The record is a 139-nucleotide RNA sequence from Ditylenchus dipsaci, which matches "U4 spliceosomal RNA" in Rfam.

RNA sequence: AACUUUGCGCACGGGCGAUAACGUGACUAUGAAGCUUUGCUGAGGUGCGUUUAUUGCUGGUUGAAAACUUUCACCCAAUGCCCCGGUUCGGUUCCUGAAACACGGAUACCGAUACCAAUUUUUGGACGCCCUUACGGGG
Numbered sequence: 001a002a003c004u005u006u007g008c009g010c011a012c013g014g015g016c017g018a019u020a021a022c023g024u025g026a027c028u029a030u031g032a033a034g035c036u037u038u039g040c041u042g043a044g045g046u047g048c049g050u051u052u053a054u055u056g057c058u059g060g061u062u063g064a065a066a067a068c069u070u071u072c073a074c075c076c077a078a079u080g081c082c083c084c085g086g087u088u089c090g091g092u093u094c095c096u097g098a099a100a101c102a103c104g105g106a107u108a109c110c111g112a113u114a115c116c117a118a119u120u121u122u123u124g125g126a127c128g129c130c131c132u133u134a135c136g137g138g139g
Stems, first nucleotide, its partner, number of pairs: 020051005026046003033041003085116003088112005095105003130139003
Rfam's curators write: U4 small nuclear RNA (U4 snRNA) is a component of the major U2-dependent spliceosome. The family's consensus secondary structure is taken from published work. Rfam links the family to the GO terms U4 snRNP and spliceosomal tri-snRNP complex assembly. Taxonomically the source falls in Ditylenchus (Eukaryota, Metazoa, Chromadorea, Sphaerularioidea). It scores 99 bits against the family's covariance model.